[Rfam]
Shown here is a 141-nucleotide sequence from Zizania palustris, a member of the family "MIR827 microRNA precursor family". The family's consensus secondary structure was predicted with RNAalifold.

RNA sequence: AUCUGUUUUGUUGGUGGUCAUCUAGCCAUGCCUGCUCUCUGCUCUCUCCUCUGAUGCAUGGAGAAUACACGGCAGUAGCGCAGUGACGUUAUGCGUGCCUUGUUGGGCAUGCAUGGUUAGAUGGCCAUCAGCAAACAAGUU
Numbered sequence: 001a002u003c004u005g006u007u008u009u010g011u012u013g014g015u016g017g018u019c020a021u022c023u024a025g026c027c028a029u030g031c032c033u034g035c036u037c038u039c040u041g042c043u044c045u046c047u048c049c050u051c052u053g054a055u056g057c058a059u060g061g062a063g064a065a066u067a068c069a070c071g072g073c074a075g076u077a078g079c080g081c082a083g084u085g086a087c088g089u090u091a092u093g094c095g096u097g098c099c100u101u102g103u104u105g106g107g108c109a110u111g112c113a114u115g116g117u118u119a120g121a122u123g124g125c126c127a128u129c130a131g132c133a134a135a136c137a138a139g140u141u
Base pairs, nucleotide, nucleotide: 005136006135007134008133010132011131012130013129014128015127016126017125018124019123020122021121022120023119024118025117026116027115028114029113030112031111
Notes:
Taxonomically the source falls in Zizania (Eukaryota, Streptophytina, Tracheophyta, Magnoliopsida). Rfam 15.1 lists 57 matches to the family in 50 species.